[Rfam]
RNA sequence: CCCCUUGCAAUGAAUCGGGGUGGGACCUAUAUUUCCCUUGUCCUUCGGGACUAUGGACAUAAACGCGCUCGUAAUAAGCGGAUCGGACCCGGGGGCGGUACCCGGCGGCUCCACCAACAUCCUUCAUUUGGGGAUCAUGGGGCCGAAACAGGAUCGACGAACGUCUAAAGGUGUUGCUUUGUCCCGGUGAGUUACCACCGUUAUCGGUACAAAAUGUACAAUUGCAAAUGACAAUCGUGCUCCGGUCGCCGUUGCUGCGUAAGCAGUAACUAGACCGAAAUCUAAGUCCUUGCGCCUAGCAGCGUAAGGCGGGGUUCGCAGGCACCUGGCAACAGAAGCCUGCACU
Numbered sequence: 001c002c003c004c005u006u007g008c009a010a011u012g013a014a015u016c017g018g019g020g021u022g023g024g025a026c027c028u029a030u031a032u033u034u035c036c037c038u039u040g041u042c043c044u045u046c047g048g049g050a051c052u053a054u055g056g057a058c059a060u061a062a063a064c065g066c067g068c069u070c071g072u073a074a075u076a077a078g079c080g081g082a083u084c085g086g087a088c089c090c091g092g093g094g095g096c097g098g099u100a101c102c103c104g105g106c107g108g109c110u111c112c113a114c115c116a117a118c119a120u121c122c123u124u125c126a127u128u129u130g131g132g133g134a135u136c137a138u139g140g141g142g143c144c145g146a147a148a149c150a151g152g153a154u155c156g157a158c159g160a161a162c163g164u165c166u167a168a169a170g171g172u173g174u175u176g177c178u179u180u181g182u183c184c185c186g187g188u189g190a191g192u193u194a195c196c197a198c199c200g201u202u203a204u205c206g207g208u209a210c211a212a213a214a215u216g217u218a219c220a221a222u223u224g225c226a227a228a229u230g231a232c233a234a235u236c237g238u239g240c241u242c243c244g245g246u247c248g249c250c251g252u253u254g255c256u257g258c259g260u261a262a263g264c265a266g267u268a269a270c271u272a273g274a275c276c277g278a279a280a281u282c283u284a285a286g287u288c289c290u291u292g293c294g295c296c297u298a299g300c301a302g303c304g305u306a307a308g309g310c311g312g313g314g315u316u317c318g319c320a321g322g323c324a325c326c327u328g329g330c331a332a333c334a335g336a337a338g339c340c341u342g343c344a345c346u
Base pairs, nucleotide, nucleotide: 040051041050042049043048055184056183057182058181059180065177066176067174068173070171079163080162083160084159085158089105090104091103092102093101106145107144108143109142110141111140112139185200186199187198188197191210192209194208195207196206312327313326314325315324318343319342320341321340322339323338
Shown here is a 346-nucleotide RNA sequence from Sulfitobacter sp. HI0023, a member of the family "Alphaproteobacteria transfer-messenger RNA". It scores 306 bits against the family's covariance model. Lineage of the source: Bacteria > Pseudomonadati > Pseudomonadota > Rhodobacterales > Sulfitobacter. Gene Ontology term of the family: RNA catabolic process.